Rfam assigns this 70-nucleotide RNA sequence to the family "Cyano-1 RNA". It is one of the family's seed sequences.

RNA sequence: UGGCGUGUGAAGGAGUAGUUCUACUUUAUCAGUGGAAACAAGGAAACACUUGAUUAAGUAGAACCAAUAA
Numbered sequence: 001u002g003g004c005g006u007g008u009g010a011a012g013g014a015g016u017a018g019u020u021c022u023a024c025u026u027u028a029u030c031a032g033u034g035g036a037a038a039c040a041a042g043g044a045a046a047c048a049c050u051u052g053a054u055u056a057a058g059u060a061g062a063a064c065c066a067a068u069a070a
Stems, first nucleotide, its partner, number of pairs: 016066001018064004024058002029053003032049003